[Rfam]
Nucleotides: 103
Stems, first nucleotide, its partner, number of pairs: 018089008029049007058079001059077006
Number, partner (000 for none) and nucleotide at each position: 001000u002000u003000a004000a005000u006000a007000u008000a009000a010000g011000a012000g013000c014000a015000a016000g017000u018089c019088c020087c021086u022085u023084a024083u025082a026000u027000a028000a029049u030048u031047c032046c033045a034044g035043g036000a037000a038000u039000a040000g041000g042000g043035c044034c045033u046032g047031g048030a049029a050000g051000u052000c053000u054000c055000u056000a057000c058079c059077g060076g061075g062074c063073g064072g065000c066000c067000g068000u069000a070000a071000a072064c073063c074062g075061c076060c077059c078000u079058g080000g081000c082025u083024a084023u085022a086021a087020g088019g089018g090000u091000u092000g093000g094000c095000c096000g097000g098000u099000u100000a101000u102000u103000a

Rfam assigns this 103-nucleotide RNA from Thermosediminibacter oceani to the family "Purine riboswitch aptamer". The organism belongs to Thermosediminibacter oceani, within Bacteria.